[Rfam]
RNA sequence: CCGGGGGCUUGCGCCCCCGGCUCAGUUGUGUCGCCCCUUCGGGGCU
Dot-bracket structure: ((((((((....))))))))............(((((...))))).
Rfam assigns this 46-nucleotide sequence from Planctomyces sp. SCGC AG-212-M04 to the family "Acido-Lenti-1 RNA". A search with the family's covariance model found it, with a score of 49 bits. Lineage of the source: Bacteria > Planctomycetota > Planctomycetia > Planctomycetales > Planctomyces. The base pairs follow the family's consensus structure, which is taken from published work.